[Rfam]
RNA sequence: AUUAUGUAAUCGCUUAAUCUAUAAAGAGCGGAGGAACCAUUUUUUUGGGGUGAAUUUAAUAUAAACUAGCAUUUAUGUUAAUAGGGUUAACUUUUUUGAUCCGAAUCCGACAGCUAACUUCGUCAGCGUUAAAAAGGAGACCA
Dot-bracket structure: ..........((((...(((....)))((((((....((......))(((.....(((((((((........)))))))))..((((...........))))...))).........)))))).))))...............
The family of this 143-nucleotide RNA from Orenia marismortui is "c-di-AMP riboswitch aptamer (ydaO/yuaA leader)". The match comes from Rfam's covariance-model search (103 bits). Lineage of the source: Bacteria > Bacillati > Bacillota > Clostridia > Orenia. About the family: This family represents a conserved RNA structure found upstream of the ydaO and yuaA genes in Bacillus subtilis and related genes in other bacteria.